[Rfam]
A member of the RNA family "Small nucleolar RNA SNORA57" from Agrilus planipennis, 139 nucleotides long. From the family's description: U99 belongs to the H/ACA class of snoRNAs which are thought to guide the sites of modification of uridines to pseudouridines, the target for this family is unknown. Gene Ontology terms of the family: RNA processing and nucleolus. On this family, see Vitali et al., Nucleic Acids Res 2003: "Identification of 13 novel human modification guide RNAs". The family has 26 seed sequences and 1,736 matches in Rfam 15.1.

RNA sequence: CCUCUUAAUUUGGCAUGCCUACACCUUGAAAUCAGUGUAGCAUGAGUGCUUUUGAGAGGUAAAUUACAGUUUGGGAAAUAUGCCUUCGGUGUCCACACAUAUAAAAGUCUGGAUCCCAUCCUCAACUUUCCCCACAUUU
Numbered sequence: 001c002c003u004c005u006u007a008a009u010u011u012g013g014c015a016u017g018c019c020u021a022c023a024c025c026u027u028g029a030a031a032u033c034a035g036u037g038u039a040g041c042a043u044g045a046g047u048g049c050u051u052u053u054g055a056g057a058g059g060u061a062a063a064u065u066a067c068a069g070u071u072u073g074g075g076a077a078a079u080a081u082g083c084c085u086u087c088g089g090u091g092u093c094c095a096c097a098c099a100u101a102u103a104a105a106a107g108u109c110u111g112g113a114u115c116c117c118a119u120c121c122u123c124a125a126c127u128u129u130c131c132c133c134a135c136a137u138u139u
Stems, first nucleotide, its partner, number of pairs: 001059005014044005021038004073131005092113004097108002